Shown here is a 98-nucleotide RNA from Clostridium sp. cel8, a member of the family "Purine riboswitch aptamer". A search with the family's covariance model found it, with a score of 70 bits. The base pairs follow the family's consensus structure, which is taken from published work. From the family's description: Riboswitches are metabolite binding domains within certain messenger RNAs that serve as precision sensors for their corresponding targets. Allosteric rearrangement of mRNA structure is mediated by ligand binding, and this results in modulation of gene expression.
RNA sequence: AUAUAAAUCUUUUAUUCAGCUCAUAUAUCCCCUGAAUAUGGCAGGAAGUAUCUACCGAAAACCAUAAAUUUUCGACUAUGAGUGGAAUUCUUAUGAUA
Number, nucleotide and partner (000 for none) at each position: 001a000002u000003a000004u000005a000006a000007a000008u000009c000010u000011u000012u000013u000014a000015u000016u000017c000018a000019g083020c082021u081022c080023a079024u078025a077026u000027a000028u000029c000030c000031c045032c044033u043034g042035a000036a000037u000038a000039u000040g000041g000042c034043a033044g032045g031046a000047a000048g000049u000050a000051u000052c000053u000054a000055c000056c074057g073058a072059a071060a070061a069062c000063c000064a000065u000066a000067a000068a000069u061070u060071u059072u058073c057074g056075a000076c000077u025078a024079u023080g022081a021082g020083u019084g000085g000086a000087a000088u000089u000090c000091u000092u000093a000094u000095g000096a000097u000098a000